U1 spliceosomal RNA: a 171-nucleotide RNA sequence from Myotis davidii.

RNA sequence: AUAUUUACCUGGCAGGGGAGAUACUAUGAGUAACUAUGAGAUACUAUGAUUCCCCAAGGUGGUUUUUCCAGGGUGAGGCUUGUUCAUUGUGCUAACUCUUGAGAUUUCCCCAAACGUGGGAACUUGACAGCAUAAUGUGUGGUAGUGGGGAACUAUGUUUGCACUCCCCUG
Numbered sequence: 001a002u003a004u005u006u007a008c009c010u011g012g013c014a015g016g017g018g019a020g021a022u023a024c025u026a027u028g029a030g031u032a033a034c035u036a037u038g039a040g041a042u043a044c045u046a047u048g049a050u051u052c053c054c055c056a057a058g059g060u061g062g063u064u065u066u067u068c069c070a071g072g073g074u075g076a077g078g079c080u081u082g083u084u085c086a087u088u089g090u091g092c093u094a095a096c097u098c099u100u101g102a103g104a105u106u107u108c109c110c111c112a113a114a115c116g117u118g119g120g121a122a123c124u125u126g127a128c129a130g131c132a133u134a135a136u137g138u139g140u141g142g143u144a145g146u147g148g149g150g151a152a153c154u155a156u157g158u159u160u161g162c163a164c165u166c167c168c169c170u171g
Base pairs, nucleotide, nucleotide: 012131013130015128016069017068018067019066020065021064023063024062025061026060027059070100071099072098073097075096077093078092079091081089082088103125104124105122106121107120109119110118147169148168149167150166152165156163157162
By type it is a spliceosomal small nuclear RNA. The family is grouped with related families in Rfam's "U1 clan". From the family's description: U1 is a small nuclear RNA (snRNA) component of the spliceosome (involved in pre-mRNA splicing).